[Rfam]
RNA: Alphaproteobacterial sRNA BjrC1505
RNA sequence: CCUCCUGUUAAUAUGCAAUUAGGGUUUGGGCGGUAAGGUCUGGUUAUUCAGAGUUUUCUGGAUUUUGCAGAGUGGUUUCUCCCUCUGUUUGACGCCUCCCUGUUAACUUCGAGAGCCGUUUAUACGGCUCUUUUUUU
Dot-bracket structure: ((...(......)......((..((....))..))......))...((((........)))).......(((.((.....))))).....((((......))))......(((((((((....))))))))).....